[Rfam]
RNA sequence: UUGAAGAAUUUGAAGACUUCAACUUGCAGAUUGAAGAAUUUAAAGACUUCAACUUGCAUUCUUGGAUAUUUAAAGACUUCCAGA
Numbered sequence: 001u002u003g004a005a006g007a008a009u010u011u012g013a014a015g016a017c018u019u020c021a022a023c024u025u026g027c028a029g030a031u032u033g034a035a036g037a038a039u040u041u042a043a044a045g046a047c048u049u050c051a052a053c054u055u056g057c058a059u060u061c062u063u064g065g066a067u068a069u070u071u072a073a074a075g076a077c078u079u080c081c082a083g084a
Base pairs, nucleotide, nucleotide: 001082003080004079005078006077009074010073011072012071013070014069018066019065020064021063025058026057027056028055031052032051033050034049035048036047
RNA: MIR8024 microRNA precursor family
Organism: Solanum commersonii